[Rfam]
RNA sequence: UGACGACUGACUAGUGACCAACUGCAGACGGGAAACUAGAGGGAAAGUCAAACGGAGAGACCUAAGGGUGAAAGCAUUUGUAAGAGUCGAUGUUAAAAAAUAGCUUACAAAUCCACCAAGGAUUCAAGAGAAAGAAUCCAAGGAGCUAAAGAAAAUCUCACUUUAGACCCCUAAGGAAUCGAUUGAAAGAAA
Numbered sequence: 001u002g003a004c005g006a007c008u009g010a011c012u013a014g015u016g017a018c019c020a021a022c023u024g025c026a027g028a029c030g031g032g033a034a035a036c037u038a039g040a041g042g043g044a045a046a047g048u049c050a051a052a053c054g055g056a057g058a059g060a061c062c063u064a065a066g067g068g069u070g071a072a073a074g075c076a077u078u079u080g081u082a083a084g085a086g087u088c089g090a091u092g093u094u095a096a097a098a099a100a101u102a103g104c105u106u107a108c109a110a111a112u113c114c115a116c117c118a119a120g121g122a123u124u125c126a127a128g129a130g131a132a133a134g135a136a137u138c139c140a141a142g143g144a145g146c147u148a149a150a151g152a153a154a155a156u157c158u159c160a161c162u163u164u165a166g167a168c169c170c171c172u173a174a175g176g177a178a179u180c181g182a183u184u185g186a187a188a189g190a191a192a
Stems, first nucleotide, its partner, number of pairs: 001050004011039005062175002065172003076112009120139005128159004146166006
Description: Shown here is a 192-nucleotide RNA, a member of the family "IMES-1 RNA motif". The family's consensus secondary structure is taken from published work. Rfam's curators put it in the seed alignment.